[Rfam]
RNA sequence: UCACCGGGCCAGCUCAACCCGCAUGGCAGGAGCGGGGGAACCACUUUCCUCCGGGCGUCUCCGGACGCCCUUGGGGUGAAGCCUCCGGCUCGAGUCGCGACAACCGUCGCGACAGAGAGAGCCGAAGGCCGGGCACGCAUCUCCUGCCCGAACCCGACAGCUAACUUCGCAGGCGCCGGAGAGGUACAUC
Number, nucleotide and partner (000 for none) at each position: 001u000002c000003a000004c000005c000006g000007g000008g000009c000010c000011a000012g174013c173014u172015c000016a000017a000018c000019c030020c029021g000022c000023a000024u000025g000026g000027c000028a000029g020030g019031a000032g170033c169034g168035g167036g166037g165038g000039a000040a000041c000042c073043a072044c000045u000046u000047u000048c000049c000050u000051c000052c000053g000054g000055g000056c000057g000058u000059c000060u000061c000062c000063g000064g000065a000066c000067g000068c000069c000070c000071u000072u043073g042074g155075g154076g153077u000078g000079a000080a000081g000082c128083c127084u126085c000086c000087g000088g000089c000090u000091c000092g000093a000094g000095u000096c000097g000098c000099g000100a000101c000102a000103a000104c000105c000106g000107u000108c000109g000110c000111g000112a000113c000114a000115g000116a000117g000118a000119g000120a000121g000122c000123c000124g000125a000126a084127g083128g082129c000130c000131g149132g148133g147134c146135a000136c000137g000138c000139a000140u000141c000142u000143c000144c000145u000146g134147c133148c132149c131150g000151a000152a000153c076154c075155c074156g000157a000158c000159a000160g000161c000162u000163a000164a000165c037166u036167u035168c034169g033170c032171a000172g014173g013174c012175g000176c000177c000178g000179g000180a000181g000182a000183g000184g000185u000186a000187c000188a000189u000190c000

Shown here is a 190-nucleotide RNA sequence from Intrasporangium oryzae, a member of the family "c-di-AMP riboswitch aptamer (ydaO/yuaA leader)". From the family's description: This family represents a conserved RNA structure found upstream of the ydaO and yuaA genes in Bacillus subtilis and related genes in other bacteria. It scores 58 bits against the family's covariance model.